[Rfam]
RNA sequence: UCUGUGGUGAUGAGUGGCGCAGGGGUACGGACCUCAGCCGGUGAUGGGGGCUGAGUGCUGCUGCUGCGCUCUGAUUGGUGGACGUGUGGUUCGCUGACGGACCGGCAGCAGCACGAGACAGACGCCUGACUGAACAGA
Dot-bracket structure: (((((................................................................................................................................)))))
This 138-nucleotide RNA from Sparus aurata belongs to the Rfam family "Small nucleolar RNA SNORD94". Rfam 15.1 lists 802 matches to the family in 622 species. Rfam links the family to the GO terms nucleolus and RNA processing. Lineage of the source: Eukaryota > Opisthokonta > Deuterostomia > Vertebrata > Sparus. It scores 84 bits against the family's covariance model.